[Rfam]
RNA sequence: UCGGUUCCGGUUCACGCCGCUGCCUCCCAGGACGGGAGGGCGACCCGGGGCC
Numbered sequence: 001u002c003g004g005u006u007c008c009g010g011u012u013c014a015c016g017c018c019g020c021u022g023c024c025u026c027c028c029a030g031g032a033c034g035g036g037a038g039g040g041c042g043a044c045c046c047g048g049g050g051c052c
Stems, first nucleotide, its partner, number of pairs: 003052003007048004015042003020038002023035001